[Rfam]
RNA sequence: AUUGCAAAUUUGAGGCCAUAGCAGAAUCACUUGUGGUGUGGCCCUGUCAGAUUCCAUGGAAUCUAUGAAUUCUGCU
Numbered sequence: 001a002u003u004g005c006a007a008a009u010u011u012g013a014g015g016c017c018a019u020a021g022c023a024g025a026a027u028c029a030c031u032u033g034u035g036g037u038g039u040g041g042c043c044c045u046g047u048c049a050g051a052u053u054c055c056a057u058g059g060a061a062u063c064u065a066u067g068a069a070u071u072c073u074g075c076u
Stems, first nucleotide, its partner, number of pairs: 012044001014043004020076007028038002049064006
RNA: Mammalian CPEB3 ribozyme
Organism: Alligator mississippiensis